[Rfam]
RNA sequence: CGAUGAGGUAGAGGUGCAUUGCUUAUCAGUAAAUGUUGUGAGGAUGACAACUGUGAUCAACAUCGAAAGGGAGCUUUGCCGAAACAAAAAUAAAGGUCAACUUUACUUUUGUUGGGGUGGCAUUGAACAAGUGCCGCACUGUCAUUAUAAGAGAUUUCUUAUGAUGGAGAACUACUGAUCGG
Numbered sequence: 001c002g003a004u005g006a007g008g009u010a011g012a013g014g015u016g017c018a019u020u021g022c023u024u025a026u027c028a029g030u031a032a033a034u035g036u037u038g039u040g041a042g043g044a045u046g047a048c049a050a051c052u053g054u055g056a057u058c059a060a061c062a063u064c065g066a067a068a069g070g071g072a073g074c075u076u077u078g079c080c081g082a083a084a085c086a087a088a089a090a091u092a093a094a095g096g097u098c099a100a101c102u103u104u105a106c107u108u109u110u111g112u113u114g115g116g117g118u119g120g121c122a123u124u125g126a127a128c129a130a131g132u133g134c135c136g137c138a139c140u141g142u143c144a145u146u147a148u149a150a151g152a153g154a155u156u157u158c159u160u161a162u163g164a165u166g167g168a169g170a171a172c173u174a175c176u177g178a179u180c181g182g
Stems, first nucleotide, its partner, number of pairs: 007176005016079003021074004033063006083113007091105004114140002117137008142167009
The record is a 182-nucleotide sequence from Exobacillus caeni, which matches "Lysine riboswitch aptamer" in Rfam.
Rfam links the family to the GO term lysine biosynthetic process.
A search with the family's covariance model found it, with a score of 120 bits.